[Rfam]
RNA sequence: CUUCUUAUUAUUCCACAGCUUUCUUGAACUGCACAUCGCAGAUCACACUGUAUGGCCCCUAACUGUAGGCGAUGAUGCAAUUGCAGUUCAAUAAAGCUGUGGGAAGAUAAGGAAG
Numbered sequence: 001c002u003u004c005u006u007a008u009u010a011u012u013c014c015a016c017a018g019c020u021u022u023c024u025u026g027a028a029c030u031g032c033a034c035a036u037c038g039c040a041g042a043u044c045a046c047a048c049u050g051u052a053u054g055g056c057c058c059c060u061a062a063c064u065g066u067a068g069g070c071g072a073u074g075a076u077g078c079a080a081u082u083g084c085a086g087u088u089c090a091a092u093a094a095a096g097c098u099g100u101g102g103g104a105a106g107a108u109a110a111g112g113a114a115g
Stems, first nucleotide, its partner, number of pairs: 003112005013102003017098006024091004029086005